[Rfam]
RNA sequence: CGCCCUUGUGUGGGAGAGUUCCGUGGCAGCCAGCUACGGGCGCCGAAGGAGCAGCACCUCUCCGUCAAACUCUCAGGCACCCAGGACCGCGCAAGGCCC
Numbered sequence: 001c002g003c004c005c006u007u008g009u010g011u012g013g014g015a016g017a018g019u020u021c022c023g024u025g026g027c028a029g030c031c032a033g034c035u036a037c038g039g040g041c042g043c044c045g046a047a048g049g050a051g052c053a054g055c056a057c058c059u060c061u062c063c064g065u066c067a068a069a070c071u072c073u074c075a076g077g078c079a080c081c082c083a084g085g086a087c088c089g090c091g092c093a094a095g096g097c098c099c
Stems, first nucleotide, its partner, number of pairs: 006094008020040006042078003045074002049072003056065002
Rfam assigns this 99-nucleotide RNA sequence from Mycobacterium sp. ACS1612 to the family "Glycine riboswitch aptamer". The source organism's lineage runs through Bacteria, Actinomycetota, Actinomycetes, Mycobacteriales and Mycobacterium.